mir-8799 microRNA precursor family: a 91-nucleotide RNA from Nyctereutes procyonoides.
Gene Ontology terms of the family: RISC complex and miRNA-mediated post-transcriptional gene silencing.
It scores 89 bits against the family's covariance model.
The organism belongs to Nyctereutes, within Eukaryota.
RNA sequence: GGGGGGAGGCCGGAUCCUGGGCUGUGUCCCCGGUGCCCUGUGCUCCGGGGCCUGCACUGUUGGAUUUGCAGUCCUGGCCGGAAAACCCCCU
Numbered sequence: 001g002g003g004g005g006g007a008g009g010c011c012g013g014a015u016c017c018u019g020g021g022c023u024g025u026g027u028c029c030c031c032g033g034u035g036c037c038c039u040g041u042g043c044u045c046c047g048g049g050g051c052c053u054g055c056a057c058u059g060u061u062g063g064a065u066u067u068g069c070a071g072u073c074c075u076g077g078c079c080g081g082a083a084a085a086c087c088c089c090c091u
Stems, first nucleotide, its partner, number of pairs: 001091006011080003016077002019074003023070004027064002030062001031059006040052001042051003